This 93-nucleotide RNA from Electrophorus electricus belongs to the Rfam family "Small nucleolar RNA U83B". Rfam describes the family as follows. U83B belongs to the C/D family of snoRNAs. U83B like U83A has no documented RNA target and they share the same host gene with the C/D box snoRNA U43 (RPL3). N.B. U83A/B/C have no sequence similarity with the U83 snoRNA that was cloned by Jady and Kiss (2000). The source organism's lineage runs through Eukaryota, Otomorpha, Gymnotiformes, Gymnotidae and Electrophorus. Rfam links the family to the GO terms RNA processing and nucleolus.
RNA sequence: GUUGUGGUGAUGAAAAACAUGGACACCAGCGUCAGGCAUGGCGCCCGAAAAGCAUGAGGAAAUCUCCCAUGCUGCCUUCCUUCUGAACACACC
Numbered sequence: 001g002u003u004g005u006g007g008u009g010a011u012g013a014a015a016a017a018c019a020u021g022g023a024c025a026c027c028a029g030c031g032u033c034a035g036g037c038a039u040g041g042c043g044c045c046c047g048a049a050a051a052g053c054a055u056g057a058g059g060a061a062a063u064c065u066c067c068c069a070u071g072c073u074g075c076c077u078u079c080c081u082u083c084u085g086a087a088c089a090c091a092c093c
Stems, first nucleotide, its partner, number of pairs: 001093001003091003